[Rfam]
RNA sequence: GAGCUAUGAAGAAGAUUUUAAAGGAAUCUGAGAUUCUAUUGAAGACAUAAGAUCCAACUCUGAGCUCACUGCC
Dot-bracket structure: ((((...........................................................))))......
RNA: Small nucleolar RNA SNORD19
Organism: Athene cunicularia